The record is a 72-nucleotide RNA sequence from Geococcyx californianus, which matches "Small nucleolar RNA SNORD18" in Rfam. Clan: SNORD18 clan. The family's RNA type in Rfam is C/D-box small nucleolar RNA. A reference for the family is Prislei et al. (1993), "Two different snoRNAs are encoded in introns of amphibian and human L1 ribosomal protein genes", Nucleic Acids Res. Pairs were carried over by alignment from the consensus structure, which was predicted with PFOLD. Its family is annotated with RNA processing and nucleolus in the Gene Ontology.
RNA sequence: CUAAAAUGAUGAGAUUCCACUUCGUUGGUACAUAUUUCUGAAGCACGUGAUAACAGUGGAUGUUCUGAUUGG
Numbered sequence: 001c002u003a004a005a006a007u008g009a010u011g012a013g014a015u016u017c018c019a020c021u022u023c024g025u026u027g028g029u030a031c032a033u034a035u036u037u038c039u040g041a042a043g044c045a046c047g048u049g050a051u052a053a054c055a056g057u058g059g060a061u062g063u064u065c066u067g068a069u070u071g072g
Stems, first nucleotide, its partner, number of pairs: 001072004